[Rfam]
This 37-nucleotide RNA belongs to the Rfam family "abiF RNA". Rfam describes the family as follows. Actinobacteria, Bacteroidetes, Clostridia, Proteobacteria, one Clostridia phage. The sequence is in the family's curated seed alignment.
RNA sequence: CCUGCCAAGCCUCUUUACAAUGCUCAAAUCGGCGGGU
Numbered sequence: 001c002c003u004g005c006c007a008a009g010c011c012u013c014u015u016u017a018c019a020a021u022g023c024u025c026a027a028a029u030c031g032g033c034g035g036g037u
Base pairs, nucleotide, nucleotide: 001036002035003034004033005032006031008024009023010022

Rfam classes the family as a small RNA.